The record is a 147-nucleotide RNA sequence from Papaver somniferum, which matches "Small nucleolar RNA snoR2/U65" in Rfam.
RNA sequence: GGUCUGACCCACGUUGAUGGUAGUCAAAAAGACAAUGACCAUCAAUGCUAUGAUUGGACCUAUAUAAAUUCCAUUUUUCGCAUCUUGAUAGGAAUCUGUAUACUGAUUUACCAUUCAUUUACAGAGCCGUUUUGUGCGAUUACAUCC
Numbered sequence: 001g002g003u004c005u006g007a008c009c010c011a012c013g014u015u016g017a018u019g020g021u022a023g024u025c026a027a028a029a030a031g032a033c034a035a036u037g038a039c040c041a042u043c044a045a046u047g048c049u050a051u052g053a054u055u056g057g058a059c060c061u062a063u064a065u066a067a068a069u070u071c072c073a074u075u076u077u078u079c080g081c082a083u084c085u086u087g088a089u090a091g092g093a094a095u096c097u098g099u100a101u102a103c104u105g106a107u108u109u110a111c112c113a114u115u116c117a118u119u120u121a122c123a124g125a126g127c128c129g130u131u132u133u134g135u136g137c138g139a140u141u142a143c144a145u146c147c
Base pairs, nucleotide, nucleotide: 002059003058004057005056006055007054012047013046014045015044016043017042019040020039021038023033024032025031078139079138080137081136082135091128092127096124097123098122100120102118104117
Rfam links the family to the GO terms RNA processing and nucleolus.